[Rfam]
RNA: c-di-GMP-I-GGC riboswitch aptamer
Organism: Methylomonas sp. LWB
RNA sequence: GAUGUUAAAGCCAAACCCAUCGCGAGAUGGGGACGGAAAACCACGGGUCCGUUUUGUCGCGAUAGCCGAGUUGCCAUGC
Numbered sequence: 001g002a003u004g005u006u007a008a009a010g011c012c013a014a015a016c017c018c019a020u021c022g023c024g025a026g027a028u029g030g031g032g033a034c035g036g037a038a039a040a041c042c043a044c045g046g047g048u049c050c051g052u053u054u055u056g057u058c059g060c061g062a063u064a065g066c067c068g069a070g071u072u073g074c075c076a077u078g079c
Base pairs, nucleotide, nucleotide: 001079003076004075011036012035016031017030018029019028020027021026034065039072040071041070044068045067046066047063048062049061